[Rfam]
RNA sequence: GUCGAUGGCCGUAACUGGCGUUUAGGGUGGGCAACCACCAGGGAGCGGCCGGCAUUACUUUCGACUUCGGGACCGUACGCCUGGGCCUCGGGU
Number, nucleotide and partner (000 for none) at each position: 001g000002u000003c000004g053005a000006u051007g050008g049009c048010c047011g046012u045013a000014a000015c042016u041017g081018g080019c079020g078021u077022u000023u000024a000025g000026g000027g038028u037029g036030g035031g000032c000033a000034a000035c030036c029037a028038c027039c000040a000041g016042g015043g000044a000045g012046c011047g010048g009049c008050c007051g006052g000053c004054a000055u000056u000057a000058c000059u000060u000061u000062c000063g000064a000065c000066u000067u000068c000069g000070g088071g087072a000073c085074c084075g000076u000077a021078c020079g019080c018081c017082u000083g000084g074085g073086c000087c071088u070089c000090g000091g000092g000093u000